[Rfam]
RNA sequence: CGCAUAUCCGAGGGGUGUCCGGCAUGGGGCCGGGCUGAGAGUUACCCUUUGAACCUGAUCCGGGUCAUGCCGGCGCGAGGGACGGAGAAUAACUAUGGC
Numbered sequence: 001c002g003c004a005u006a007u008c009c010g011a012g013g014g015g016u017g018u019c020c021g022g023c024a025u026g027g028g029g030c031c032g033g034g035c036u037g038a039g040a041g042u043u044a045c046c047c048u049u050u051g052a053a054c055c056u057g058a059u060c061c062g063g064g065u066c067a068u069g070c071c072g073g074c075g076c077g078a079g080g081g082a083c084g085g086a087g088a089a090u091a092a093c094u095a096u097g098g099c
Stems, first nucleotide, its partner, number of pairs: 007086004011048004017035007054080003060073004